Record summary:
A member of the RNA family "c-di-AMP riboswitch aptamer (ydaO/yuaA leader)" from Desulfocucumis palustris, 238 nucleotides long.

RNA sequence: UUCUCCUUGUCGCUUAAUUCUUUUUUAAUGAAAGAAGCGGGGGAACCAAUUUUUGGGGUGAAUCGGUUCAGCAGUCAGUAGUGCGCAGCCAGUGUUCAGAGAAAGAAGGAAGUCCAUUAAAGGUGAUUUCCGACAAGUAUCCGGCAACAGGCGACCAGAUUACCGGCUACCGAAUUCGUAGGGUUACUUUCGACCCGAAUCCGUCAGCUAACUUCGUAAGCGUUGAAAGGGAGGACAG
Numbered sequence: 001u002u003c004u005c006c007u008u009g010u011c012g013c014u015u016a017a018u019u020c021u022u023u024u025u026u027a028a029u030g031a032a033a034g035a036a037g038c039g040g041g042g043g044a045a046c047c048a049a050u051u052u053u054u055g056g057g058g059u060g061a062a063u064c065g066g067u068u069c070a071g072c073a074g075u076c077a078g079u080a081g082u083g084c085g086c087a088g089c090c091a092g093u094g095u096u097c098a099g100a101g102a103a104a105g106a107a108g109g110a111a112g113u114c115c116a117u118u119a120a121a122g123g124u125g126a127u128u129u130c131c132g133a134c135a136a137g138u139a140u141c142c143g144g145c146a147a148c149a150g151g152c153g154a155c156c157a158g159a160u161u162a163c164c165g166g167c168u169a170c171c172g173a174a175u176u177c178g179u180a181g182g183g184u185u186a187c188u189u190u191c192g193a194c195c196c197g198a199a200u201c202c203g204u205c206a207g208c209u210a211a212c213u214u215c216g217u218a219a220g221c222g223u224u225g226a227a228a229g230g231g232a233g234g235a236c237a238g
Stems, first nucleotide, its partner, number of pairs: 011222004018036007037217006047055002056202003064178003181196004